[Rfam]
Rfam assigns this 95-nucleotide RNA sequence from Clostridioides difficile to the family "Guanidine-I riboswitch aptamer". The source organism's lineage runs through Bacteria, Bacillati, Clostridia, Peptostreptococcales and Clostridioides. The literature on the family includes a 2004 paper in Proc Natl Acad Sci U S A by Barrick et al., "New RNA motifs suggest an expanded scope for riboswitches in bacterial genetic control".
RNA sequence: AAUUUAGUUUUCUAGGGUUCCGCAUUUUAUAAUGGUCAGGUCCAAGAGAAAACGCACAAUUGUUGUGUACACGGAAGGAUAAAAGCCUGGGAGAU
Numbered sequence: 001a002a003u004u005u006a007g008u009u010u011u012c013u014a015g016g017g018u019u020c021c022g023c024a025u026u027u028u029a030u031a032a033u034g035g036u037c038a039g040g041u042c043c044a045a046g047a048g049a050a051a052a053c054g055c056a057c058a059a060u061u062g063u064u065g066u067g068u069a070c071a072c073g074g075a076a077g078g079a080u081a082a083a084a085g086c087c088u089g090g091g092a093g094a095u
Stems, first nucleotide, its partner, number of pairs: 007053006015043002020040002022037001023034004054068006070090001072093001076088003